[Rfam]
RNA: Small nucleolar RNA SNORA71
Organism: Leptobrachium leishanense
RNA sequence: ACCUGCAUCGAAAGUGAUCGUGGCUCUACAAGUUGCCUGGUCAUUGAUACUGCAGGGAGAGAGACUGUGAUGGCUUUUCCCGUGUUUGGAUGCUUUUAUUAUACAUGCCAAACCCUGUAACCGUCAUACA
Numbered sequence: 001a002c003c004u005g006c007a008u009c010g011a012a013a014g015u016g017a018u019c020g021u022g023g024c025u026c027u028a029c030a031a032g033u034u035g036c037c038u039g040g041u042c043a044u045u046g047a048u049a050c051u052g053c054a055g056g057g058a059g060a061g062a063g064a065c066u067g068u069g070a071u072g073g074c075u076u077u078u079c080c081c082g083u084g085u086u087u088g089g090a091u092g093c094u095u096u097u098a099u100u101a102u103a104c105a106u107g108c109c110a111a112a113c114c115c116u117g118u119a120a121c122c123g124u125c126a127u128a129c130a
Base pairs, nucleotide, nucleotide: 002056003055004054005053006052007051013045014044015043016042017041018040019039020038022037023036024035067127068126069125070124071123072122073121084113085112086111087110088109090106091105092104